[Rfam]
RNA sequence: CCCAUAAGUAAUAAAAUGUCCUUUUAGGUCCCUUAACUUUAUUUAAAGUAUGGGUUUGGUCCCUUCAGUUAAUUUAAUUUAAAAAAACGUUAAAUUUAGGGACCAAAUUAAUACUAAUUAAAUAAGUUAAGGGAUCAAAAAACCCACUUGGGUUGGCCUAGUGGUAUUGGCUUGGAUCUGAGAGUUUGCUCCUCCUCGUUCGAUUCCCUCCGGUGCCAGCUUAGGUGGACUAAUUUAGCUUUUUCAAAAAAUAUAAAAGGUUAAAGGACCAAAAAUUAACAUUUUUUUAUUAAUUAAAUUAACAUAAAAAAUCUAACUAAUACUUUAAAUAAAAUUAAGGGACUUAAACCAACCUUUUAUUUCUUAUUAUA
Dot-bracket structure: ...(((((..............(((.(((.((((((.((((((.(((((((............................................................................................................................................................................................................................................................................))))))).)))))).)))))).))).)))..............)))))....
Numbered sequence: 001c002c003c004a005u006a007a008g009u010a011a012u013a014a015a016a017u018g019u020c021c022u023u024u025u026a027g028g029u030c031c032c033u034u035a036a037c038u039u040u041a042u043u044u045a046a047a048g049u050a051u052g053g054g055u056u057u058g059g060u061c062c063c064u065u066c067a068g069u070u071a072a073u074u075u076a077a078u079u080u081a082a083a084a085a086a087a088c089g090u091u092a093a094a095u096u097u098a099g100g101g102a103c104c105a106a107a108u109u110a111a112u113a114c115u116a117a118u119u120a121a122a123u124a125a126g127u128u129a130a131g132g133g134a135u136c137a138a139a140a141a142a143c144c145c146a147c148u149u150g151g152g153u154u155g156g157c158c159u160a161g162u163g164g165u166a167u168u169g170g171c172u173u174g175g176a177u178c179u180g181a182g183a184g185u186u187u188g189c190u191c192c193u194c195c196u197c198g199u200u201c202g203a204u205u206c207c208c209u210c211c212g213g214u215g216c217c218a219g220c221u222u223a224g225g226u227g228g229a230c231u232a233a234u235u236u237a238g239c240u241u242u243u244u245c246a247a248a249a250a251a252u253a254u255a256a257a258a259g260g261u262u263a264a265a266g267g268a269c270c271a272a273a274a275a276u277u278a279a280c281a282u283u284u285u286u287u288u289a290u291u292a293a294u295u296a297a298a299u300u301a302a303c304a305u306a307a308a309a310a311a312u313c314u315a316a317c318u319a320a321u322a323c324u325u326u327a328a329a330u331a332a333a334a335u336u337a338a339g340g341g342a343c344u345u346a347a348a349c350c351a352a353c354c355u356u357u358u359a360u361u362u363c364u365u366a367u368u369a370u371a
Stems, first nucleotide, its partner, number of pairs: 004367005023348003027344003031340006038333006045326007
This 371-nucleotide RNA from Medicago truncatula belongs to the Rfam family "MIR2655 microRNA precursor family".